Source information: Shown here is a 113-nucleotide RNA from Nomascus leucogenys, a member of the family "Y RNA". Lineage of the source: Eukaryota > Eumetazoa > Bilateria > Theria > Nomascus. The base pairs follow the family's consensus structure, which is taken from published work. Rfam classes the family as a non-coding RNA gene. Rfam's curators write: Y RNAs are components of the Ro ribonucleoprotein particle (Ro RNP), in association with Ro60 and La proteins. The Y RNAs and Ro60 and La proteins are well conserved, but the function of the Ro RNP is not known.
[Rfam]
RNA sequence: GGCUGGUCCAAAGGCAGUGAGUUAUCUCAAUUGGUUGUUCGCAGUCAAUUACAGAUCGAACUCCUUGUUUUACUCUUUUCCCAUCUCUCACUACUGCACUUGACUAGUCUUAA
Numbered sequence: 001g002g003c004u005g006g007u008c009c010a011a012a013g014g015c016a017g018u019g020a021g022u023u024a025u026c027u028c029a030a031u032u033g034g035u036u037g038u039u040c041g042c043a044g045u046c047a048a049u050u051a052c053a054g055a056u057c058g059a060a061c062u063c064c065u066u067g068u069u070u071u072a073c074u075c076u077u078u079u080c081c082c083a084u085c086u087c088u089c090a091c092u093a094c095u096g097c098a099c100u101u102g103a104c105u106a107g108u109c110u111u112a113a
Base pairs, nucleotide, nucleotide: 001109002108003107004106005105006104007103008102010101011100014097015096016092017091018090019089020088021087044074047071048070